[Rfam]
RNA sequence: CGAACAACGAUGAAAGAGAGCAUCUGUUAGCCCAGACCUUCAGGGAACUAAAGUCGGAGACUGAAAGCUUUAGUGGUUGCUGGUAACAGAGAUUCACUCUGGAGUUGCAUUCCUGAACUCAAAGUAGGGAAUGCCGGCCGCUUCCGUUAAGAGCCUUGAUUCAUUCCAGGAUCAUGUGAGUGGCUGUUGUACAUACAGCAAAAAGGGUGGUACCGCGUGACUUAACUCGUCCCUUAU
Numbered sequence: 001c002g003a004a005c006a007a008c009g010a011u012g013a014a015a016g017a018g019a020g021c022a023u024c025u026g027u028u029a030g031c032c033c034a035g036a037c038c039u040u041c042a043g044g045g046a047a048c049u050a051a052a053g054u055c056g057g058a059g060a061c062u063g064a065a066a067g068c069u070u071u072a073g074u075g076g077u078u079g080c081u082g083g084u085a086a087c088a089g090a091g092a093u094u095c096a097c098u099c100u101g102g103a104g105u106u107g108c109a110u111u112c113c114u115g116a117a118c119u120c121a122a123a124g125u126a127g128g129g130a131a132u133g134c135c136g137g138c139c140g141c142u143u144c145c146g147u148u149a150a151g152a153g154c155c156u157u158g159a160u161u162c163a164u165u166c167c168a169g170g171a172u173c174a175u176g177u178g179a180g181u182g183g184c185u186g187u188u189g190u191a192c193a194u195a196c197a198g199c200a201a202a203a204a205g206g207g208u209g210g211u212a213c214c215g216c217g218u219g220a221c222u223u224a225a226c227u228c229g230u231c232c233c234u235u236a237u
Stems, first nucleotide, its partner, number of pairs: 007105002015100004023090006036077003047074008108133007135146003183199005204234004215230003219226001
RNA: T-box leader
Organism: Desulfitobacterium hafniense